[Rfam]
RNA sequence: AACGCACAUAAACCCAAAGGUCAUCGACCCAAAACGUGUCAUGACCUAUGCUACACGUGCGCAAAGCAACGAGAACUUGUCGCCUUUUAUCGGCUCUGCGUGCCAAUAGAAGUGAAUUCAAGGUCCGACAUUC
Numbered sequence: 001a002a003c004g005c006a007c008a009u010a011a012a013c014c015c016a017a018a019g020g021u022c023a024u025c026g027a028c029c030c031a032a033a034a035c036g037u038g039u040c041a042u043g044a045c046c047u048a049u050g051c052u053a054c055a056c057g058u059g060c061g062c063a064a065a066g067c068a069a070c071g072a073g074a075a076c077u078u079g080u081c082g083c084c085u086u087u088u089a090u091c092g093g094c095u096c097u098g099c100g101u102g103c104c105a106a107u108a109g110a111a112g113u114g115a116a117u118u119c120a121a122g123g124u125c126c127g128a129c130a131u132u133c
Stems, first nucleotide, its partner, number of pairs: 003061005009055001019046006026040003073125002076122003084112007092104003